[Rfam]
Nucleotides: 077
Stems, first nucleotide, its partner, number of pairs: 003045005010077007017040002050067007
Number, partner (000 for none) and nucleotide at each position: 001000c002000a003045g004044g005043g006042u007041c008000a009000u010077u011076g012075u013074a014073g015072a016071a017040g018039c019000a020000u021000u022000g023000u024000a025000g026000a027000a028000g029000c030000g031000u032000g033000c034000u035000c036000g037000u038000c039018g040017c041007g042006a043005c044004c045003c046000c047000u048000g049000c050067c051066a052065g053064c054063c055062c056061u057000u058000u059000u060000c061056a062055g063054g064053g065052c066051u067050g068000c069000a070000a071016u072015u073014c074013u075012a076011c077010a

This 77-nucleotide RNA sequence from Parnassius apollo belongs to the Rfam family "Mammalian CPEB3 ribozyme". Lineage of the source: Eukaryota > Eumetazoa > Neolepidoptera > Parnassius > Parnassius.